[Rfam]
RNA sequence: GUAGAGAUAGCUCAAAUGGCGAGAGCGCCUGGUUGAAGCCCAGGAGAUCCCGGUUCAAUUCCGGUUCUCUACA
Dot-bracket structure: (((((((..((((.........)))).(((((.......))))).....((((.......)))).))))))).
Numbered sequence: 001g002u003a004g005a006g007a008u009a010g011c012u013c014a015a016a017u018g019g020c021g022a023g024a025g026c027g028c029c030u031g032g033u034u035g036a037a038g039c040c041c042a043g044g045a046g047a048u049c050c051c052g053g054u055u056c057a058a059u060u061c062c063g064g065u066u067c068u069c070u071a072c073a
Stems, first nucleotide, its partner, number of pairs: 001072007010026004028044005050064004